Annotation:
Shown here is a 98-nucleotide RNA from Mannheimia varigena, a member of the family "Aggregatibacter sRNA 22". The literature on the family includes a 2017 paper in DNA Res by Oogai et al., "Small RNA repertoires and their intraspecies variation in Aggregatibacter actinomycetemcomitans". It is annotated as a small RNA. A search with the family's covariance model found it, with a score of 82 bits.

[Rfam]
RNA sequence: AAGCGGUCACAAAAAGCGGAGCUUUUUGAACGUUGGCUAGCCAACGGCGGCGAAGCCGUGAACAAUCCUUACAAGGAUUGUGAAUAAAAAAGUGUAAU
Numbered sequence: 001a002a003g004c005g006g007u008c009a010c011a012a013a014a015a016g017c018g019g020a021g022c023u024u025u026u027u028g029a030a031c032g033u034u035g036g037c038u039a040g041c042c043a044a045c046g047g048c049g050g051c052g053a054a055g056c057c058g059u060g061a062a063c064a065a066u067c068c069u070u071a072c073a074a075g076g077a078u079u080g081u082g083a084a085u086a087a088a089a090a091a092g093u094g095u096a097a098u
Stems, first nucleotide, its partner, number of pairs: 010028008031046006047059005062081008084095003
Lineage of the source: Bacteria > Pseudomonadota > Gammaproteobacteria > Mannheimia > Mannheimia varigena.